[Rfam]
RNA: Actino-pnp RNA
RNA sequence: UCCGGUCCUCGGUAGUGGCUUCCCGAACUCCCUCCCUCCGGUGAGCGGCGCUCGGUAGGCCUCGAUCGAUGACCGUC
Number, nucleotide and partner (000 for none) at each position: 001u000002c000003c075004g074005g073006u072007c071008c000009u069010c068011g067012g066013u065014a000015g000016u000017g061018g060019c059020u058021u057022c000023c055024c054025g053026a052027a000028c050029u000030c000031c000032c000033u000034c000035c000036c000037u000038c000039c000040g000041g000042u000043g000044a000045g000046c000047g000048g000049c000050g028051c000052u026053c025054g024055g023056u000057a021058g020059g019060c018061c017062u000063c000064g000065a013066u012067c011068g010069a009070u000071g007072a006073c005074c004075g003076u000077c000